[Rfam]
RNA: Y RNA-like
RNA sequence: GUGACGAAUGCCGUGCGGAACUACAUCACAUCGCUGGUCGCGGGUUCGAUUCCCGUCCUGGUCGCAAGAUCGGGUAGCUCAGUUGGUAGAGCAUCGAAAUGUUUCGCCAAAAACUCGUCGUCACGAA
Numbered sequence: 001g002u003g004a005c006g007a008a009u010g011c012c013g014u015g016c017g018g019a020a021c022u023a024c025a026u027c028a029c030a031u032c033g034c035u036g037g038u039c040g041c042g043g044g045u046u047c048g049a050u051u052c053c054c055g056u057c058c059u060g061g062u063c064g065c066a067a068g069a070u071c072g073g074g075u076a077g078c079u080c081a082g083u084u085g086g087u088a089g090a091g092c093a094u095c096g097a098a099a100u101g102u103u104u105c106g107c108c109a110a111a112a113a114c115u116c117g118u119c120g121u122c123a124c125g126a127a
Base pairs, nucleotide, nucleotide: 002123003122004121005120006119007118015107016106017105018104019103020102024096033095035093040056041055042054043053044052047086057074058073059072060071061070062069077092078091079090080089